[Rfam]
RNA: Makes More Granules Regulator RNA (mmgR)
RNA sequence: GCAAGGCGCCCCUCAUGGGCGUUUCCUCCCAGAACUUGGGCCGUGCCGUUCGGUACGGCCCUUUUUUCUUGGCCGC
Numbered sequence: 001g002c003a004a005g006g007c008g009c010c011c012c013u014c015a016u017g018g019g020c021g022u023u024u025c026c027u028c029c030c031a032g033a034a035c036u037u038g039g040g041c042c043g044u045g046c047c048g049u050u051c052g053g054u055a056c057g058g059c060c061c062u063u064u065u066u067u068c069u070u071g072g073c074c075g076c
Stems, first nucleotide, its partner, number of pairs: 008020004038061009